Plant signal recognition particle RNA: a 307-nucleotide sequence from Arabis nemorensis. Gene Ontology terms of the family: signal recognition particle, endoplasmic reticulum targeting and SRP-dependent cotranslational protein targeting to membrane, signal sequence recognition. The match comes from Rfam's covariance-model search (266 bits). Rfam classes the family as a non-coding RNA gene.
RNA sequence: GUCGAGCUUAGUAACGUGGGCUUGUGAUCCAAGUGGAGACAUCAAAGUGAUGGAACGUUGGGUUGAUCUCAUUGGGCCGGGUUCGGGUUGGACUAUAUUCUGGCUCGCCCAUUCCAAGUUGGGAGUUGAGGCAUGUGGCUUGAGCGAAGGCUCGGGUCGCUUGUCUCCUAGAGCGGAGGAGACUGCGUGAGGCUGGUUUCACAGAGCAGCGUCCACCUCCCGCUCUUGACGGUGGAAGGAUUACGAGCCAUGGUCUUCCGAGCCCACUAUGACCCGAUAAGCCAACACCAAUUGAACCAUCACUUUU
Numbered sequence: 001g002u003c004g005a006g007c008u009u010a011g012u013a014a015c016g017u018g019g020g021c022u023u024g025u026g027a028u029c030c031a032a033g034u035g036g037a038g039a040c041a042u043c044a045a046a047g048u049g050a051u052g053g054a055a056c057g058u059u060g061g062g063u064u065g066a067u068c069u070c071a072u073u074g075g076g077c078c079g080g081g082u083u084c085g086g087g088u089u090g091g092a093c094u095a096u097a098u099u100c101u102g103g104c105u106c107g108c109c110c111a112u113u114c115c116a117a118g119u120u121g122g123g124a125g126u127u128g129a130g131g132c133a134u135g136u137g138g139c140u141u142g143a144g145c146g147a148a149g150g151c152u153c154g155g156g157u158c159g160c161u162u163g164u165c166u167c168c169u170a171g172a173g174c175g176g177a178g179g180a181g182a183c184u185g186c187g188u189g190a191g192g193c194u195g196g197u198u199u200c201a202c203a204g205a206g207c208a209g210c211g212u213c214c215a216c217c218u219c220c221c222g223c224u225c226u227u228g229a230c231g232g233u234g235g236a237a238g239g240a241u242u243a244c245g246a247g248c249c250a251u252g253g254u255c256u257u258c259c260g261a262g263c264c265c266a267c268u269a270u271g272a273c274c275c276g277a278u279a280a281g282c283c284a285a286c287a288c289c290a291a292u293u294g295a296a297c298c299a300u301c302a303c304u305u306u307u
Stems, first nucleotide, its partner, number of pairs: 001040003004023007028037003044306010056294002058291003062286004067281001069280001071278006078271001079265008090256003094253001101250007109239002112237005118230009128167006135160011168173001175220005185212004193204003